[Rfam]
RNA sequence: CUAUAACUUUUAUUAGUUAUGGCGAGAGGAG
Numbered sequence: 001c002u003a004u005a006a007c008u009u010u011u012a013u014u015a016g017u018u019a020u021g022g023c024g025a026g027a028g029g030a031g
Base pairs, nucleotide, nucleotide: 001022002021003020004019005018006017007016008015
A member of the RNA family "L31-Firmicutes ribosomal protein leader", 31 nucleotides long.
Its Rfam clan is "Ribosomal Protein L31 Leader clan".
By type it is a cis-regulatory leader.
The literature on the family includes a 2020 paper in BMC Microbiol by Eckert and Weinberg, "Discovery of 20 novel ribosomal leader candidates in bacteria and archaea".